[Rfam]
RNA sequence: CAUAGAGUAGGCAAAACGUGUUAAGUGCUAAAAAAUGGAAUGUUGUUUUUAGACGAAAAAGAAUUUUGCAGUGUUUUGCCGCAUUCGCUACA
Numbered sequence: 001c002a003u004a005g006a007g008u009a010g011g012c013a014a015a016a017c018g019u020g021u022u023a024a025g026u027g028c029u030a031a032a033a034a035a036u037g038g039a040a041u042g043u044u045g046u047u048u049u050u051a052g053a054c055g056a057a058a059a060a061g062a063a064u065u066u067u068g069c070a071g072u073g074u075u076u077u078g079c080c081g082c083a084u085u086c087g088c089u090a091c092a
Stems, first nucleotide, its partner, number of pairs: 003090003010080009019070003025054002028052007038086005058067003
RNA: THF (Tetrahydrofolate) riboswitch aptamer